[Rfam]
RNA: Small nucleolar RNA Z155
RNA sequence: UUUUGAGGUGAUGAGAAAGUUGUCGGAAUAUAUAUUAUGUCGAUUGAAAAAACUUCCAGACUACAAUUAUCUGAUCAAAU
Numbered sequence: 001u002u003u004u005g006a007g008g009u010g011a012u013g014a015g016a017a018a019g020u021u022g023u024c025g026g027a028a029u030a031u032a033u034a035u036u037a038u039g040u041c042g043a044u045u046g047a048a049a050a051a052a053c054u055u056c057c058a059g060a061c062u063a064c065a066a067u068u069a070u071c072u073g074a075u076c077a078a079a080u
Stems, first nucleotide, its partner, number of pairs: 002079005